[Rfam]
RNA sequence: CUUGACCGACCCCAGCCACAACGGCUCGUCCCGGUACCCGUACACGGCCAUCAACGCCUGGGCCUC
Numbered sequence: 001c002u003u004g005a006c007c008g009a010c011c012c013c014a015g016c017c018a019c020a021a022c023g024g025c026u027c028g029u030c031c032c033g034g035u036a037c038c039c040g041u042a043c044a045c046g047g048c049c050a051u052c053a054a055c056g057c058c059u060g061g062g063c064c065u066c
Stems, first nucleotide, its partner, number of pairs: 014026004032056002034051002038047003
This 66-nucleotide RNA sequence from Actinocrispum wychmicini belongs to the Rfam family "ASpks TB sRNA". For this family Rfam cites "Identification of small RNAs in Mycobacterium tuberculosis" (Arnvig and Young, Mol Microbiol, 2009). The match comes from Rfam's covariance-model search (55 bits).